[Rfam]
RNA sequence: AAGCGCAAUGAUGGUAACCAUCUUUCGGGUCCGAUUCAAGAAAUGACGGAUAAAAUUUUCUGAGCGCUU
Numbered sequence: 001a002a003g004c005g006c007a008a009u010g011a012u013g014g015u016a017a018c019c020a021u022c023u024u025u026c027g028g029g030u031c032c033g034a035u036u037c038a039a040g041a042a043a044u045g046a047c048g049g050a051u052a053a054a055a056u057u058u059u060c061u062g063a064g065c066g067c068u069u
Stems, first nucleotide, its partner, number of pairs: 001069006

Rfam assigns this 69-nucleotide RNA sequence from Acrobeloides nanus to the family "Small nucleolar RNA SNORD2". Rfam 15.1 lists 1,116 matches to the family in 660 species. Gene Ontology terms of the family: RNA processing and nucleolus. Lineage of the source: Eukaryota > Eumetazoa > Ecdysozoa > Cephaloboidea > Acrobeloides. A reference for the family is Zhou et al. (2004), "Identification of a novel box C/D snoRNA from mouse nucleolar cDNA library", Gene.